[Rfam]
RNA sequence: ACUGCCUCAAUUCGUUUAAGAUAAGCUGGCAAUAAAAAGACAGAACCUGUCCACUGUGAUAGGCUUUUUGUUGUACUUAUUUAUACGAUAUAGGCAUUCAUUAGUUACAGUAAGUUGCUUUAGAUUCUUUCUUAUGCUUUUCUUUAACUAUAUAUUUUCAGAAUGUUUUCUAUUGUAUAUAUACAGACCAAAGCCAUGUUGUGGAUCCGGGACUGUGUUUUUUAU
Numbered sequence: 001a002c003u004g005c006c007u008c009a010a011u012u013c014g015u016u017u018a019a020g021a022u023a024a025g026c027u028g029g030c031a032a033u034a035a036a037a038a039g040a041c042a043g044a045a046c047c048u049g050u051c052c053a054c055u056g057u058g059a060u061a062g063g064c065u066u067u068u069u070g071u072u073g074u075a076c077u078u079a080u081u082u083a084u085a086c087g088a089u090a091u092a093g094g095c096a097u098u099c100a101u102u103a104g105u106u107a108c109a110g111u112a113a114g115u116u117g118c119u120u121u122a123g124a125u126u127c128u129u130u131c132u133u134a135u136g137c138u139u140u141u142c143u144u145u146a147a148c149u150a151u152a153u154a155u156u157u158u159c160a161g162a163a164u165g166u167u168u169u170c171u172a173u174u175g176u177a178u179a180u181a182u183a184c185a186g187a188c189c190a191a192a193g194c195c196a197u198g199u200u201g202u203g204g205a206u207c208c209g210g211g212a213c214u215g216u217g218u219u220u221u222u223u224a225u
Base pairs, nucleotide, nucleotide: 006094008093010091011090013087014086015085019082020081021080022079023078024077025076029074030073031072032071033070034069035068036067037066038065039064041063047062048061049060050059051058095165096164097163098162099161100158104156115154119150124145181218182217183216184215185214186213188211189210192206194204195203196202197201
Dot-bracket structure: .....(.(.((.(((...(((((((...(((((((((((.(.....(((((......))))))))))))))))).)))))))..)))..)).))((((((...(..........(...(....(....................)....)...).).)..)))))...............((((((.((..(.((((...)))).)...)).)))))).......
This 225-nucleotide RNA from Clostridium sp. C105KSO13 belongs to the Rfam family "Enterococcus sRNA 1300". The family has 3 seed sequences and 115 matches in Rfam 15.1. It scores 107 bits against the family's covariance model. Pairs were carried over by alignment from the consensus structure, which was predicted with RNAfold. About the family: Expressed in mid and late exponential phases of growth. Expression remained uniform under daptomycin exposure. For this family Rfam cites "Small RNAs in vancomycin-resistant Enterococcus faecium involved in daptomycin response and resistance" (Sinel et al., Sci Rep, 2017).